A member of the RNA family "int-alpA RNA" from Methylomagnum ishizawai, 75 nucleotides long. The family has 167 seed sequences and 577 matches in Rfam 15.1. Taxonomically the source falls in Methylomagnum (Bacteria, Gammaproteobacteria, Methylococcales, Methylococcaceae). The match comes from Rfam's covariance-model search (39 bits). Rfam's curators write: Acidobacteria (1 example), Planctomycetes (1 example), Proteobacteria. The family's consensus secondary structure is taken from published work.

RNA sequence: GCCGCGCCUAGCCUUUGGCCGGGCGAACCAUGGACCCCCUUUCACCCAUGUUGGCGCGGCUCCCCACCUGAAAGG
Numbered sequence: 001g002c003c004g005c006g007c008c009u010a011g012c013c014u015u016u017g018g019c020c021g022g023g024c025g026a027a028c029c030a031u032g033g034a035c036c037c038c039c040u041u042u043c044a045c046c047c048a049u050g051u052u053g054g055c056g057c058g059g060c061u062c063c064c065c066a067c068c069u070g071a072a073a074g075g
Stems, first nucleotide, its partner, number of pairs: 001060008011024004029050005037075002040072003